[Rfam]
RNA sequence: CAUAGGACAGGUCUGUGGUUGCAAGUCGAAGCCAGUCGCAGGCAAAACGAUCCACUUAAGGUAUCAAAAGGAUACUGAGCAUGGUGCGGCUUAGAAGUAAGACCUGCCGAUAUAAAAUCGAGAGGAUUAGUAGUGAGAGGUAUAUGACCGCAUAGCGAACGUUCCAGCAGGCGAGUGUGGGGGAAAAGACCAGGUCAGCUGUGUGUG
Number, nucleotide and partner (000 for none) at each position: 001c207002a206003u205004a204005g000006g202007a000008c201009a200010g199011g000012u000013c198014u197015g196016u192017g191018g190019u189020u188021g000022c000023a000024a000025g000026u000027c000028g000029a178030a000031g176032c042033c000034a091035g090036u089037c088038g087039c086040a085041g000042g032043c000044a000045a000046a000047a000048c000049g000050a000051u084052c083053c000054a000055c000056u079057u000058a000059a076060g075061g000062u000063a073064u072065c071066a000067a000068a000069a000070g000071g065072a064073u063074a000075c060076u059077g000078a000079g056080c000081a000082u185083g052084g051085u040086g039087c038088g037089g036090c035091u034092u000093a000094g000095a000096a000097g000098u000099a000100a000101g000102a000103c171104c170105u169106g168107c167108c120109g119110a118111u117112a000113u000114a000115a000116a000117a111118u110119c109120g108121a000122g000123a000124g164125g163126a162127u161128u000129a000130g000131u000132a000133g156134u155135g000136a000137g000138a000139g149140g148141u147142a000143u000144a000145u000146g000147a141148c140149c139150g000151c000152a000153u000154a000155g134156c133157g000158a000159a000160c000161g127162u126163u125164c124165c000166a000167g107168c106169a105170g104171g103172c000173g000174a000175g000176u031177g000178u029179g000180g000181g000182g000183g000184a000185a082186a000187a000188g020189a019190c018191c017192a016193g000194g000195u000196c015197a014198g013199c010200u009201g008202u006203g000204u004205g003206u002207g001
This 207-nucleotide RNA sequence from Dialister sp. CAG:588 belongs to the Rfam family "raiA RNA". The organism belongs to Dialister, within Bacteria. It is annotated as a riboswitch.